[Rfam]
RNA: Small Cajal body specific RNA 24
RNA sequence: UGGACAUGGAGGUUUUGUCUCAGUUUCUUCUCUCUGUGGGGCAAACUGGCCAAGUGUCCUAGAGUAACACAGAAGCAAUCUGUUCAACUCUGGUGAGCUAACAGGGUUGGAUCGUUCCACUUCUGACAGCU
Numbered sequence: 001u002g003g004a005c006a007u008g009g010a011g012g013u014u015u016u017g018u019c020u021c022a023g024u025u026u027c028u029u030c031u032c033u034c035u036g037u038g039g040g041g042c043a044a045a046c047u048g049g050c051c052a053a054g055u056g057u058c059c060u061a062g063a064g065u066a067a068c069a070c071a072g073a074a075g076c077a078a079u080c081u082g083u084u085c086a087a088c089u090c091u092g093g094u095g096a097g098c099u100a101a102c103a104g105g106g107u108u109g110g111a112u113c114g115u116u117c118c119a120c121u122u123c124u125g126a127c128a129g130c131u
Stems, first nucleotide, its partner, number of pairs: 002059006022047004027041004070125006089105004